[Rfam]
RNA: pan motif
RNA sequence: CGGAUGGUAUUCGAAAUGAAACUAUACUGAUGAAUAAAAUAUUUUUCACUAUAAAGAUUGGAGCGUAGCUUAUAUCUUGAAGGAAUGAGACUCAUUG
Numbered sequence: 001c002g003g004a005u006g007g008u009a010u011u012c013g014a015a016a017u018g019a020a021a022c023u024a025u026a027c028u029g030a031u032g033a034a035u036a037a038a039a040u041a042u043u044u045u046u047c048a049c050u051a052u053a054a055a056g057a058u059u060g061g062a063g064c065g066u067a068g069c070u071u072a073u074a075u076c077u078u079g080a081a082g083g084a085a086u087g088a089g090a091c092u093c094a095u096u097g
Stems, first nucleotide, its partner, number of pairs: 001029003004025005010020002067092002069089005075084003
Dot-bracket structure: ((((((((.((.......))))))).))).....................................(((((((.(((....)))))))).)).....